[Rfam]
RNA: Bacterial RNase P class A
RNA sequence: UGAGUGGGUUGGACAACCGCGCGAAUUUAUUCUCGAGGAAAGUCCGGGCACCAUAGAGCAGAAUGCCAGUUAACGGCUGGGCGGUGGAAGCCGACGGAAAGUGCAGCAGAGAGUAGACCGCCGAUGGCGCGCAAGCGCACAGGUAAGGGUGAAAGGGUGCGGUAAGAGCGCACCGCGCAGCUGGUAACAGUUUGUGGCACGGUAAACCCCAUUCGGUGCAAGACCAAAUAGGAAAACAAGUGAGGCUCGACCUCCGCCUUGUUGCUCGCAGGGGUUUUCGGGUAGGUCGCUUGAGGUGUGUAGUAAUACCCAUCCUAGAUGAAUGGUUGUCGCUCGUAAGAGUACAGAACCCGGCUUAUAGACUCACUCAUCUC
Numbered sequence: 001u002g003a004g005u006g007g008g009u010u011g012g013a014c015a016a017c018c019g020c021g022c023g024a025a026u027u028u029a030u031u032c033u034c035g036a037g038g039a040a041a042g043u044c045c046g047g048g049c050a051c052c053a054u055a056g057a058g059c060a061g062a063a064u065g066c067c068a069g070u071u072a073a074c075g076g077c078u079g080g081g082c083g084g085u086g087g088a089a090g091c092c093g094a095c096g097g098a099a100a101g102u103g104c105a106g107c108a109g110a111g112a113g114u115a116g117a118c119c120g121c122c123g124a125u126g127g128c129g130c131g132c133a134a135g136c137g138c139a140c141a142g143g144u145a146a147g148g149g150u151g152a153a154a155g156g157g158u159g160c161g162g163u164a165a166g167a168g169c170g171c172a173c174c175g176c177g178c179a180g181c182u183g184g185u186a187a188c189a190g191u192u193u194g195u196g197g198c199a200c201g202g203u204a205a206a207c208c209c210c211a212u213u214c215g216g217u218g219c220a221a222g223a224c225c226a227a228a229u230a231g232g233a234a235a236a237c238a239a240g241u242g243a244g245g246c247u248c249g250a251c252c253u254c255c256g257c258c259u260u261g262u263u264g265c266u267c268g269c270a271g272g273g274g275u276u277u278u279c280g281g282g283u284a285g286g287u288c289g290c291u292u293g294a295g296g297u298g299u300g301u302a303g304u305a306a307u308a309c310c311c312a313u314c315c316u317a318g319a320u321g322a323a324u325g326g327u328u329g330u331c332g333c334u335c336g337u338a339a340g341a342g343u344a345c346a347g348a349a350c351c352c353g354g355c356u357u358a359u360a361g362a363c364u365c366a367c368u369c370a371u372c373u374c
Stems, first nucleotide, its partner, number of pairs: 001370010011359001012331007020035002023032003040357003044354005049218004056267004061214005066080005081095001082093004096209002101207002103203002118148002120144003125141002127138004156174006175198001176196005181190003222288004232279006258272005295314004300309003